[Rfam]
RNA sequence: AAAGUCGGUCAGGCAAUCGCUCUUUGCUUUAGCAAAGGGAGGAAAGUCCGGGCUCCAUAGGGCAGAGUGCCAGGUAACUCCUGGGAGAUGUGAGUCUACGGAAAGUGCCACAGAAAAUAUACCGCCUGUAUACUACAGGUAAGGGUGAAAUGGUGCGGUAAGAGCGCACCGCACGAUUGGUAACAGUCGUGGCAGGGAAAACCCCACUUGGAGCAAGACCAAAUAGGAAUCCAUAUGAUCAUUGCGAUCAUAACGCACGGCCCGUGUGGGAUUCGGGUAGGUCGCUUGAGGUAAACGGUGACGUUUAUCCCAGAUGAAUGGUUGUCCAAGACAGAACCCGGCUUAUCGGCCGACUUUUAUU
Numbered sequence: 001a002a003a004g005u006c007g008g009u010c011a012g013g014c015a016a017u018c019g020c021u022c023u024u025u026g027c028u029u030u031a032g033c034a035a036a037g038g039g040a041g042g043a044a045a046g047u048c049c050g051g052g053c054u055c056c057a058u059a060g061g062g063c064a065g066a067g068u069g070c071c072a073g074g075u076a077a078c079u080c081c082u083g084g085g086a087g088a089u090g091u092g093a094g095u096c097u098a099c100g101g102a103a104a105g106u107g108c109c110a111c112a113g114a115a116a117a118u119a120u121a122c123c124g125c126c127u128g129u130a131u132a133c134u135a136c137a138g139g140u141a142a143g144g145g146u147g148a149a150a151u152g153g154u155g156c157g158g159u160a161a162g163a164g165c166g167c168a169c170c171g172c173a174c175g176a177u178u179g180g181u182a183a184c185a186g187u188c189g190u191g192g193c194a195g196g197g198a199a200a201a202c203c204c205c206a207c208u209u210g211g212a213g214c215a216a217g218a219c220c221a222a223a224u225a226g227g228a229a230u231c232c233a234u235a236u237g238a239u240c241a242u243u244g245c246g247a248u249c250a251u252a253a254c255g256c257a258c259g260g261c262c263c264g265u266g267u268g269g270g271a272u273u274c275g276g277g278u279a280g281g282u283c284g285c286u287u288g289a290g291g292u293a294a295a296c297g298g299u300g301a302c303g304u305u306u307a308u309c310c311c312a313g314a315u316g317a318a319u320g321g322u323u324g325u326c327c328a329a330g331a332c333a334g335a336a337c338c339c340g341g342c343u344u345a346u347c348g349g350c351c352g353a354c355u356u357u358u359a360u361u
Stems, first nucleotide, its partner, number of pairs: 001357010011346001012326007020039008044344003048341005053213004060263004065209005070084005085099001086097004100204002105202002108197002122144002124140007152170006171193001172191008217283004227274006254268005290309008